[Rfam]
RNA sequence: GUAGGCUAUGGAGACAUGGUUCCAACUACCAUUGGGGGAAAGAUCGUUGGCUCCCUAUGUGCAAUUGCAGGUGUCUUAACUAUCGCCUUACCGGUCCCCGUCAUAGUGUCCAAU
Numbered sequence: 001g002u003a004g005g006c007u008a009u010g011g012a013g014a015c016a017u018g019g020u021u022c023c024a025a026c027u028a029c030c031a032u033u034g035g036g037g038g039a040a041a042g043a044u045c046g047u048u049g050g051c052u053c054c055c056u057a058u059g060u061g062c063a064a065u066u067g068c069a070g071g072u073g074u075c076u077u078a079a080c081u082a083u084c085g086c087c088u089u090a091c092c093g094g095u096c097c098c099c100g101u102c103a104u105a106g107u108g109u110c111c112a113a114u
Stems, first nucleotide, its partner, number of pairs: 001114002004111002007108003011104001013102003018097002021094001037077002040074001050062002
This 114-nucleotide RNA sequence from Equus asinus belongs to the Rfam family "Potassium channel RNA editing signal". The match comes from Rfam's covariance-model search (104 bits). By type it is a cis-regulatory element. Rfam's curators write: This family represents a group of sequences related to the human potassium channel Kv1.1 hairpin element which directs the efficient modification of an adenosine to inosine by an adenosine deaminase acting on RNA (ADAR). The ADAR modification causes an isoleucine/valine recoding event which lies in the ion-conducting pore of the potassium channel. It is thought that this editing event targets the process of fast inactivation and allows a more rapid recovery from inactivation at negative potentials.